A member of the RNA family "MIR4371 microRNA precursor family" from Glycine max, 158 nucleotides long. A search with the family's covariance model found it, with a score of 121 bits. NCBI's taxonomy places the organism under Eukaryota, Streptophytina, Embryophyta, Euphyllophyta, Glycine subgen. Soja.

RNA sequence: UCGUUAAGUGAUGAUGUGUUAGACAAAGUGUCAUGUCAUCACGCCUUAUCAAGGAUAUCUCAUUGCCAUUUCAUCACUUUCAUUGAUGUGGCAAUCACGUGUCAGUGAUUGGGCAUGAUGAUGUCACAAUCUAUAUGUCACAUCAUCACUUAAUGAAA
Numbered sequence: 001u002c003g004u005u006a007a008g009u010g011a012u013g014a015u016g017u018g019u020u021a022g023a024c025a026a027a028g029u030g031u032c033a034u035g036u037c038a039u040c041a042c043g044c045c046u047u048a049u050c051a052a053g054g055a056u057a058u059c060u061c062a063u064u065g066c067c068a069u070u071u072c073a074u075c076a077c078u079u080u081c082a083u084u085g086a087u088g089u090g091g092c093a094a095u096c097a098c099g100u101g102u103c104a105g106u107g108a109u110u111g112g113g114c115a116u117g118a119u120g121a122u123g124u125c126a127c128a129a130u131c132u133a134u135a136u137g138u139c140a141c142a143u144c145a146u147c148a149c150u151u152a153a154u155g156a157a158a
Base pairs, nucleotide, nucleotide: 001156002155003154004153005152006151007150008149009148010147011146012145013144014143015142016141017140018139020137021136023134025132027130029128030127031126033124034123035122036121037120038119039118040117041116043114044113045112046111048109049108050107051106054103055102056101057100058099071086072085073084
Dot-bracket structure: ((((((((((((((((((.((.(.(.(.(((.(((((((((.((((.((((..(((((............(((..........)))............)))))..)))).)))).))))))))).))).).).).)).))))))))))))))))))..